[Rfam]
RNA sequence: GGGUCCGGUGCACGGCCAACUGGCUUUGCGGGACGCCCCUUUAAAGAACCUGGGAAAGAACUUCUCCCAACCCAACCGGACUUCUCACUCGUUCAGGUGACGAAGUGGCAGAUGUCCGGGGACGGGCGGUACGGUCGCGCCAUACCAACCGCAUAUGACGACGGCCCCCGCCGGGACUGGCAUCCCGGACGAGGGCCUGUUCAUCAAGGAAGUGGAGCUUCCCG
Numbered sequence: 001g002g003g004u005c006c007g008g009u010g011c012a013c014g015g016c017c018a019a020c021u022g023g024c025u026u027u028g029c030g031g032g033a034c035g036c037c038c039c040u041u042u043a044a045a046g047a048a049c050c051u052g053g054g055a056a057a058g059a060a061c062u063u064c065u066c067c068c069a070a071c072c073c074a075a076c077c078g079g080a081c082u083u084c085u086c087a088c089u090c091g092u093u094c095a096g097g098u099g100a101c102g103a104a105g106u107g108g109c110a111g112a113u114g115u116c117c118g119g120g121g122a123c124g125g126g127c128g129g130u131a132c133g134g135u136c137g138c139g140c141c142a143u144a145c146c147a148a149c150c151g152c153a154u155a156u157g158a159c160g161a162c163g164g165c166c167c168c169c170g171c172c173g174g175g176a177c178u179g180g181c182a183u184c185c186c187g188g189a190c191g192a193g194g195g196c197c198u199g200u201u202c203a204u205c206a207a208g209g210a211a212g213u214g215g216a217g218c219u220u221c222c223c224g
Stems, first nucleotide, its partner, number of pairs: 007205004014072002085100005108138002111136002163197005169191002173186004208222005
A member of the RNA family "Streptomyces sRNA 4677" from Streptomyces lunaelactis, 224 nucleotides long. A search with the family's covariance model found it, with a score of 64 bits. It is annotated as a small RNA. About the family: Located in the intergenic region between anti-sigma factor SCO4677 gene and a putative regulatory protein gene SCO4676. scr4677 expression requires the SCO4677 activity and scr4677 sRNA itself seem to affect the levels of the SCO4676-associated transcripts. On this family, see Hindra et al., PLoS One 2014: "Complex intra-operonic dynamics mediated by a small RNA in Streptomyces coelicolor". NCBI's taxonomy places the organism under Bacteria, Actinomycetota, Actinomycetes, Kitasatosporales, Streptomyces.